[Rfam]
RNA: Bacterial large signal recognition particle RNA
Organism: Intestinibacter bartlettii
RNA sequence: CUGUACUAGAUGGGGAAGUAGCGGUGCCCUGUAACCUGCAACCCGCUAUAGCAGGAUUGAAUUCCAUCUGGAGGCUACUACUUUGUGGAGCUGCCCGAAGCAAGUGGUGUUGACGCUUAGGUCCUAUGCAAUGUAAGCCCAUGAACCCUGUCAGAUCCGGAAGGAAGCAGCAGUAAGUGGUUACUGCAUGUGACGUGGGAGUGCCUAAGUUGAGCUAACUACUUUGGUAACGUCUGUGAAGUAUAGUCGAUAGAUGGUGUACAG
Numbered sequence: 001c002u003g004u005a006c007u008a009g010a011u012g013g014g015g016a017a018g019u020a021g022c023g024g025u026g027c028c029c030u031g032u033a034a035c036c037u038g039c040a041a042c043c044c045g046c047u048a049u050a051g052c053a054g055g056a057u058u059g060a061a062u063u064c065c066a067u068c069u070g071g072a073g074g075c076u077a078c079u080a081c082u083u084u085g086u087g088g089a090g091c092u093g094c095c096c097g098a099a100g101c102a103a104g105u106g107g108u109g110u111u112g113a114c115g116c117u118u119a120g121g122u123c124c125u126a127u128g129c130a131a132u133g134u135a136a137g138c139c140c141a142u143g144a145a146c147c148c149u150g151u152c153a154g155a156u157c158c159g160g161a162a163g164g165a166a167g168c169a170g171c172a173g174u175a176a177g178u179g180g181u182u183a184c185u186g187c188a189u190g191u192g193a194c195g196u197g198g199g200a201g202u203g204c205c206u207a208a209g210u211u212g213a214g215c216u217a218a219c220u221a222c223u224u225u226g227g228u229a230a231c232g233u234c235u236g237u238g239a240a241g242u243a244u245a246g247u248c249g250a251u252a253g254a255u256g257g258u259g260u261a262c263a264g
Stems, first nucleotide, its partner, number of pairs: 001264006009058003012030004017025001019023001035055005064257007073248005079243010092229002096226005104219002106216003115210008123199006129190002132188004137182001139180004148173004156165003